[Rfam]
RNA sequence: CCAGUCGGCUGGACGGCCGCUGCUUUCGAGCAGAGGAAAGUCCGGGCUCCACGGAUGAACGGUGCCGGAUAACGUCCGGCGGGGGCGACCCCAGGGAAAGCGCCACAGAAAGCAAACCGCCCCGGCGGCCUCACAUUGCGCGGGGCAUCGCGCCGAGGGUCAGGGUGAAAGGGUGCGGUAAGAGCGCACCGCGUCGGCGGUAACGUCGGCGGCACGGCAAGCCCCACCGGGAGCAAAACCGAAUAGGGGCGACAGGGCCAGGCGCAAGCCUGUCCCGGGCUCAUCCGAGCCGUCGCCCGGGUUGGUUGCUUGAGGCGGCUGGUAACAGCUGUCCCAGAGGAAUGGUCGUCACGCGGCGCGCGUCGUGCUCCGCACGAUCGCGCCGCCCUACAGAACCCGGCUUACAGGCCGACUGGCACU
Numbered sequence: 001c002c003a004g005u006c007g008g009c010u011g012g013a014c015g016g017c018c019g020c021u022g023c024u025u026u027c028g029a030g031c032a033g034a035g036g037a038a039a040g041u042c043c044g045g046g047c048u049c050c051a052c053g054g055a056u057g058a059a060c061g062g063u064g065c066c067g068g069a070u071a072a073c074g075u076c077c078g079g080c081g082g083g084g085g086c087g088a089c090c091c092c093a094g095g096g097a098a099a100g101c102g103c104c105a106c107a108g109a110a111a112g113c114a115a116a117c118c119g120c121c122c123c124g125g126c127g128g129c130c131u132c133a134c135a136u137u138g139c140g141c142g143g144g145g146c147a148u149c150g151c152g153c154c155g156a157g158g159g160u161c162a163g164g165g166u167g168a169a170a171g172g173g174u175g176c177g178g179u180a181a182g183a184g185c186g187c188a189c190c191g192c193g194u195c196g197g198c199g200g201u202a203a204c205g206u207c208g209g210c211g212g213c214a215c216g217g218c219a220a221g222c223c224c225c226a227c228c229g230g231g232a233g234c235a236a237a238a239c240c241g242a243a244u245a246g247g248g249g250c251g252a253c254a255g256g257g258c259c260a261g262g263c264g265c266a267a268g269c270c271u272g273u274c275c276c277g278g279g280c281u282c283a284u285c286c287g288a289g290c291c292g293u294c295g296c297c298c299g300g301g302u303u304g305g306u307u308g309c310u311u312g313a314g315g316c317g318g319c320u321g322g323u324a325a326c327a328g329c330u331g332u333c334c335c336a337g338a339g340g341a342a343u344g345g346u347c348g349u350c351a352c353g354c355g356g357c358g359c360g361c362g363u364c365g366u367g368c369u370c371c372g373c374a375c376g377a378u379c380g381c382g383c384c385g386c387c388c389u390a391c392a393g394a395a396c397c398c399g400g401c402u403u404a405c406a407g408g409c410c411g412a413c414u415g416g417c418a419c420u
Base pairs, nucleotide, nucleotide: 001416002415003414004413005412006411007410008409009408010407011405012350013349014348015347016346017345018344020033021032022031023030024029038403039402040401042400043399044398045397046396047233048232049231050230057284060229061228062227063226064225065079066078067077068076069075080094081092082091083090084089095224096223100222101221102218103217104216117164118163119160120159121158122157123155124154125153126152127151172190173189174188175187176186177185191213192211193210194209195208196207197206198205199204237307238306239305240304247298248297249296250295251294252293278291279290280289281288282287314333315332316331317330318329319328320327321326
RNA: Bacterial RNase P class A